[Rfam]
Annotation:
bantam microRNA precursor family: an 81-nucleotide sequence from Ceutorhynchus assimilis. The literature on the family includes a 2010 paper in Genome Biol Evol by Marco et al., "Functional shifts in insect microRNA evolution". Pairs were carried over by alignment from the consensus structure, which was predicted with RNAalifold. The family is grouped with related families in Rfam's "mir-81 clan". Lineage of the source: Eukaryota > Ecdysozoa > Altocrustacea > Pterygota > Ceutorhynchus.
RNA sequence: ACACUUGAACGAAACGGGUUUUCACAGUGAUUUUCGAUAUUUUUGAAUUUCUGAGAUCAUUGUGAAAGCUGAUUUUGUCAA
Numbered sequence: 001a002c003a004c005u006u007g008a009a010c011g012a013a014a015c016g017g018g019u020u021u022u023c024a025c026a027g028u029g030a031u032u033u034u035c036g037a038u039a040u041u042u043u044u045g046a047a048u049u050u051c052u053g054a055g056a057u058c059a060u061u062g063u064g065a066a067a068g069c070u071g072a073u074u075u076u077g078u079c080a081a
Stems, first nucleotide, its partner, number of pairs: 009078006017070009028059006